[Rfam]
RNA: chrB-b RNA
Organism: Pseudolabrys sp. Root1462
RNA sequence: UGGGGCCAGCGGCGGUCGCCCCGCGCUUCAGGCAUCCGAUGCCCAAGCACCGC
Numbered sequence: 001u002g003g004g005g006c007c008a009g010c011g012g013c014g015g016u017c018g019c020c021c022c023g024c025g026c027u028u029c030a031g032g033c034a035u036c037c038g039a040u041g042c043c044c045a046a047g048c049a050c051c052g053c
Stems, first nucleotide, its partner, number of pairs: 001023006012053005031043004